Small nucleolar RNA R38: an 83-nucleotide RNA sequence from Phtheirospermum japonicum. snoR38 is a C/D box small nucleolar RNA conserved across yeast, human, Arabidopsis and rice. It is encoded in the intron of elongation factor-1 gamma in both pombe and cerevisiae. snoR38 guides the methylation of 2'-O-ribose sites in 28S rRNA. For this family Rfam cites "Antisense snoRNAs: a family of nucleolar RNAs with long complementarities to rRNA" (Bachellerie et al., Trends Biochem Sci, 1995). NCBI's taxonomy places the organism under Eukaryota, Streptophytina, Mesangiospermae, eudicotyledons, Phtheirospermum. Rfam classes the family as a C/D-box small nucleolar RNA. Rfam 15.1 lists 2,295 matches to the family in 1,305 species.
RNA sequence: CAUUGGGUAUGACGAGACAAACAAAUUCACAGUUAUCCCUGUCUGAAUAUUUUAUGUUGAAAAGUUUGUGAUCUAACCCAAAU
Numbered sequence: 001c002a003u004u005g006g007g008u009a010u011g012a013c014g015a016g017a018c019a020a021a022c023a024a025a026u027u028c029a030c031a032g033u034u035a036u037c038c039c040u041g042u043c044u045g046a047a048u049a050u051u052u053u054a055u056g057u058u059g060a061a062a063a064g065u066u067u068g069u070g071a072u073c074u075a076a077c078c079c080a081a082a083u
Base pairs, nucleotide, nucleotide: 003081004080005079006078007077